[Rfam]
RNA: Flavo-1 RNA
RNA sequence: UGUUGGCUUAGGGAUUGAAGCGGCAUCCUUUUUAUGUUUACCAAGCUUUGCGAAGGUGAACAAAAAAAGAUAAAGCGAAAAGCCCGACCCCGA
Numbered sequence: 001u002g003u004u005g006g007c008u009u010a011g012g013g014a015u016u017g018a019a020g021c022g023g024c025a026u027c028c029u030u031u032u033u034a035u036g037u038u039u040a041c042c043a044a045g046c047u048u049u050g051c052g053a054a055g056g057u058g059a060a061c062a063a064a065a066a067a068a069g070a071u072a073a074a075g076c077g078a079a080a081a082g083c084c085c086g087a088c089c090c091c092g093a
Stems, first nucleotide, its partner, number of pairs: 011085003015081002020076002025071003031066003035062008